[Rfam]
RNA sequence: GUGGCUGCUGCUCCCCUUCGAUCCCACUGAUCCCACUGCUGCCACCAUUAUUGCUGCUGUCCAGCAGGUGCUGCUGGUGGUGAUGGUGGUAGUCUGGCGGGGGCGGCGGGGCCGCUU
Numbered sequence: 001g002u003g004g005c006u007g008c009u010g011c012u013c014c015c016c017u018u019c020g021a022u023c024c025c026a027c028u029g030a031u032c033c034c035a036c037u038g039c040u041g042c043c044a045c046c047a048u049u050a051u052u053g054c055u056g057c058u059g060u061c062c063a064g065c066a067g068g069u070g071c072u073g074c075u076g077g078u079g080g081u082g083a084u085g086g087u088g089g090u091a092g093u094c095u096g097g098c099g100g101g102g103g104c105g106g107c108g109g110g111g112c113c114g115c116u117u
Stems, first nucleotide, its partner, number of pairs: 007115002010112005015106002018103001031102004036097002038093004043088012062076006
This 117-nucleotide RNA from Vicugna pacos belongs to the Rfam family "mir-1260b microRNA precursor family". Rfam links the family to the GO terms miRNA-mediated post-transcriptional gene silencing and RISC complex. Pairs were carried over by alignment from the consensus structure, which was predicted with RNAalifold.